[Rfam]
RNA sequence: GCUGAUCGCGCGGGAGAGUUCCGACGAUUCGUCUGUUGACGUCUCGUCGGGCGCCGAAGGAGCAACCGCCCCGGAAUCUCUCAGGCACCAGGGACCGCGUGGGUCAA
Numbered sequence: 001g002c003u004g005a006u007c008g009c010g011c012g013g014g015a016g017a018g019u020u021c022c023g024a025c026g027a028u029u030c031g032u033c034u035g036u037u038g039a040c041g042u043c044u045c046g047u048c049g050g051g052c053g054c055c056g057a058a059g060g061a062g063c064a065a066c067c068g069c070c071c072c073g074g075a076a077u078c079u080c081u082c083a084g085g086c087a088c089c090a091g092g093g094a095c096c097g098c099g100u101g102g103g104u105c106a107a
Base pairs, nucleotide, nucleotide: 006102007101008100009099010098011097012096013095020051021050022049023048024047025046026045027044053086054085055084056082057081060080061079062078066074067073
A member of the RNA family "Glycine riboswitch aptamer" from Novosphingobium ginsenosidimutans, 107 nucleotides long.